[Rfam]
RNA: Small nucleolar RNA Z40
RNA sequence: UGUCGUCAUGAUGAUUGGCAAAAUGUUCAACUGCUCUGAAGUGUGAUGAUAGAUGCCCCUCUGAACAACA
Number, nucleotide and partner (000 for none) at each position: 001u000002g069003u068004c000005g066006u065007c000008a000009u000010g000011a000012u000013g000014a000015u000016u000017g000018g000019c000020a000021a000022a000023a000024u000025g000026u000027u000028c000029a000030a000031c000032u000033g000034c000035u000036c000037u000038g000039a000040a000041g000042u000043g000044u000045g000046a000047u000048g000049a000050u000051a000052g000053a000054u000055g000056c000057c000058c000059c000060u000061c000062u000063g000064a000065a006066c005067a000068a003069c002070a000